Annotation: Shown here is a 241-nucleotide RNA sequence from Salmo trutta, a member of the family "Small nucleolar RNA SNORA53". About the family: The snoRNA ACA53 belongs to the H/ACA family of pseudouridylation guide snoRNAs. A search with the family's covariance model found it, with a score of 106 bits. The family's RNA type in Rfam is H/ACA-box small nucleolar RNA. Taxonomically the source falls in Salmo (Eukaryota, Metazoa, Actinopterygii, Protacanthopterygii).
RNA sequence: AACACGCUCCUUAGAUCCACCUCUGGAGGGUUCUCCUGUGCUGGUGCUGUCGUCGCUCUCUGAGUGCUGCAACUCCAGCCUGGAGGCCCUCAGCAGCUUUCUGGCUGUACAGUUGGAGGUGCUUGAGUCAUUGGUGUGUGAGAGCAGUCUACCUGCCUCGCCCAGCCCCACUGUUGCUCUGGCAACCCUCAGUCGUACUGGGGGGAUUCUACCAGUGCAGCUAGGCUGUGGGGCGGACACC
Numbered sequence: 001a002a003c004a005c006g007c008u009c010c011u012u013a014g015a016u017c018c019a020c021c022u023c024u025g026g027a028g029g030g031u032u033c034u035c036c037u038g039u040g041c042u043g044g045u046g047c048u049g050u051c052g053u054c055g056c057u058c059u060c061u062g063a064g065u066g067c068u069g070c071a072a073c074u075c076c077a078g079c080c081u082g083g084a085g086g087c088c089c090u091c092a093g094c095a096g097c098u099u100u101c102u103g104g105c106u107g108u109a110c111a112g113u114u115g116g117a118g119g120u121g122c123u124u125g126a127g128u129c130a131u132u133g134g135u136g137u138g139u140g141a142g143a144g145c146a147g148u149c150u151a152c153c154u155g156c157c158u159c160g161c162c163c164a165g166c167c168c169c170a171c172u173g174u175u176g177c178u179c180u181g182g183c184a185a186c187c188c189u190c191a192g193u194c195g196u197a198c199u200g201g202g203g204g205g206a207u208u209c210u211a212c213c214a215g216u217g218c219a220g221c222u223a224g225g226c227u228g229u230g231g232g233g234c235g236g237a238c239a240c241c
Base pairs, nucleotide, nucleotide: 002139003138004137005136006135007134008133010127011126012125013124014123018121019120020119021118022117023116024115025114026091027090028089029088030087034084035083036082040079041078042077043076046073048071049070052067054066055065056064057063093108094107095106096105097104098103153236154235155234156233157232160229164227165226166225167224175219176218177217179215180214181213182212189204190203
Dot-bracket structure: .(((((((.(((((...(((((((((((((...(((...((((..(.((..(.((((.....)))))..)).)..))))..)))..))))).((((((....)))))).....)))))))).))))).....))))))).............(((((..(...((((.......(((.((((......((............)).......)))).)))....)))).)..))))).....